A member of the RNA family "Small nucleolar RNA SNORD2" from Dissostichus mawsoni, 75 nucleotides long. The literature on the family includes a 2004 paper in Gene by Zhou et al., "Identification of a novel box C/D snoRNA from mouse nucleolar cDNA library". Pairs were carried over by alignment from the consensus structure, which was predicted with WAR. The source organism's lineage runs through Eukaryota, Vertebrata, Neopterygii, Notothenioidei and Dissostichus.

RNA sequence: GAGUGAAAUGAUGCUUUACCAUCUUUCGGGACUUACCAAAUUAUGGGGAUAUUAUUUUUACCUUACUGAUCACUC
Numbered sequence: 001g002a003g004u005g006a007a008a009u010g011a012u013g014c015u016u017u018a019c020c021a022u023c024u025u026u027c028g029g030g031a032c033u034u035a036c037c038a039a040a041u042u043a044u045g046g047g048g049a050u051a052u053u054a055u056u057u058u059u060a061c062c063u064u065a066c067u068g069a070u071c072a073c074u075c
Stems, first nucleotide, its partner, number of pairs: 001075006
The family's RNA type in Rfam is C/D-box small nucleolar RNA.